[Rfam]
RNA sequence: GAAAUAUAAGAAACCGUCUCUUAACUUUUAACUAAAAAAGCUAAGAACCGGCUCUUAUAUUUAAGAACCGGUUCUUAGAUUUUUUAGUUAAAGUUAAGAGAUGAUUUCUUAUAUUCU
Numbered sequence: 001g002a003a004a005u006a007u008a009a010g011a012a013a014c015c016g017u018c019u020c021u022u023a024a025c026u027u028u029u030a031a032c033u034a035a036a037a038a039a040g041c042u043a044a045g046a047a048c049c050g051g052c053u054c055u056u057a058u059a060u061u062u063a064a065g066a067a068c069c070g071g072u073u074c075u076u077a078g079a080u081u082u083u084u085u086a087g088u089u090a091a092a093g094u095u096a097a098g099a100g101a102u103g104a105u106u107u108c109u110u111a112u113a114u115u116c117u
Base pairs, nucleotide, nucleotide: 001117003115004114005113006112007111008110009109010108011107012106013105015103016102017101018100019099020098021097022096023095024094025093026092028091029090030089031088032087033086034085035084036083037082038081039080041078042077043076044075045074046073047072
Dot-bracket structure: (.(((((((((((.((((((((((((.((((((((((((.(((((((........................))))))).)))))))))))))))))))))))).))))))))))).)

The family of this 117-nucleotide sequence from Brassica carinata is "MIR9563 microRNA precursor family". Taxonomically the source falls in Brassica (Eukaryota, Streptophytina, Mesangiospermae, Gunneridae). The base pairs follow the family's consensus structure, which was predicted with RNAalifold. The match comes from Rfam's covariance-model search (102 bits).